RNA sequence: GGCCGGAUAAGGCGUUCGCGCCGCAUCCGGCGGUGGUGCGCUGAAGCCUGAUGCGACGCUUACCGCGUCUUAUCAUGCC
Numbered sequence: 001g002g003c004c005g006g007a008u009a010a011g012g013c014g015u016u017c018g019c020g021c022c023g024c025a026u027c028c029g030g031c032g033g034u035g036g037u038g039c040g041c042u043g044a045a046g047c048c049u050g051a052u053g054c055g056a057c058g059c060u061u062a063c064c065g066c067g068u069c070u071u072a073u074c075a076u077g078c079c
Stems, first nucleotide, its partner, number of pairs: 002031007011022004046078002049075005055069005
This 79-nucleotide sequence belongs to the Rfam family "Nucleoid-associated noncoding RNA 4 (CssrE)". The family has 3 seed sequences and 870 matches in Rfam 15.1. In E. coli small RNA transcribed from repeated extragenic palindromic element (REP325) called nucleoid-associated ncRNA 4 (nRNA4) collaborates HU protein in condensing the DNA. The secondary structure but not the sequence of the RNA is important in nucleoid condensation. Also identified in Shigella as CssrE. The match comes from Rfam's covariance-model search (70 bits). On this family, see Peng et al., PLoS One 2011: "An integrated approach for finding overlooked genes in Shigella". By type it is a small RNA.